[Rfam]
SAM-I/IV (S-adenosyl methionine) riboswitch aptamer: a 96-nucleotide RNA from Myroides phaeus.
The family's consensus secondary structure is taken from published work.
A search with the family's covariance model found it, with a score of 51 bits.
Taxonomically the source falls in Myroides (Bacteria, Flavobacteriia, Flavobacteriales, Flavobacteriaceae).
RNA sequence: GUCCUGUAUUUCGAAUCACAUUAAGUGAUACCAACCGAGAGUAGUCUCCACGGUGGUCAAAUAAUACGGGAUGACUGUCCAAAAUUAACGUACACA
Numbered sequence: 001g002u003c004c005u006g007u008a009u010u011u012c013g014a015a016u017c018a019c020a021u022u023a024a025g026u027g028a029u030a031c032c033a034a035c036c037g038a039g040a041g042u043a044g045u046c047u048c049c050a051c052g053g054u055g056g057u058c059a060a061a062u063a064a065u066a067c068g069g070g071a072u073g074a075c076u077g078u079c080c081a082a083a084a085u086u087a088a089c090g091u092a093c094a095c096a
Base pairs, nucleotide, nucleotide: 006067007066008065009064010063015029016028017027018026019025030057031056032055035053036052037051039048040047042092043091069080070079071078072077